A member of the RNA family "tRNA" from Blautia argi, 73 nucleotides long.
Pairs were carried over by alignment from the consensus structure, which is taken from published work.
The family's RNA type in Rfam is transfer RNA.
The organism belongs to Blautia, within Bacteria.
[Rfam]
RNA sequence: GCACUCGUAGCUCAGGGGAUAGAGCAGUGGUUUCCGGUACCACGUGUCGGGGGUUCGAUUCCCUCCGGGUGUG
Numbered sequence: 001g002c003a004c005u006c007g008u009a010g011c012u013c014a015g016g017g018g019a020u021a022g023a024g025c026a027g028u029g030g031u032u033u034c035c036g037g038u039a040c041c042a043c044g045u046g047u048c049g050g051g052g053g054u055u056c057g058a059u060u061c062c063c064u065c066c067g068g069g070u071g072u073g
Stems, first nucleotide, its partner, number of pairs: 001072007010025004027043005049065005